[Rfam]
RNA: c-di-AMP riboswitch aptamer (ydaO/yuaA leader)
Organism: Winogradskya consettensis
RNA sequence: ACGGAGCCGCCGCUCAAUCGCCGAGAGGCGAACCGGGGACCCAAUCCGUAAUGGGGUGAAUCCGCUGAGUAUUCAGCGGUAGGGAUCCUUCCAUCCCGAACCCGUCAGCUAACCCGGUCGGCGGUCGACGGAAGGAAGA
Number, nucleotide and partner (000 for none) at each position: 001a000002c000003g000004g000005a000006g000007c000008c000009g000010c000011c123012g122013c121014u120015c000016a000017a000018u031019c030020g029021c000022c000023g000024a000025g000026a000027g000028g000029c020030g019031a018032a118033c117034c116035g115036g114037g113038g000039a000040c000041c000042c053043a052044a000045u000046c000047c000048g000049u000050a000051a000052u043053g042054g103055g102056g101057u000058g000059a000060a000061u000062c079063c078064g077065c076066u000067g000068a000069g000070u000071a000072u000073u000074c000075a000076g065077c064078g063079g062080u000081a000082g097083g096084g095085a094086u000087c000088c000089u000090u000091c000092c000093a000094u085095c084096c083097c082098g000099a000100a000101c056102c055103c054104g000105u000106c000107a000108g000109c000110u000111a000112a000113c037114c036115c035116g034117g033118u032119c000120g014121g013122c012123g011124g000125u000126c000127g000128a000129c000130g000131g000132a000133a000134g000135g000136a000137a000138g000139a000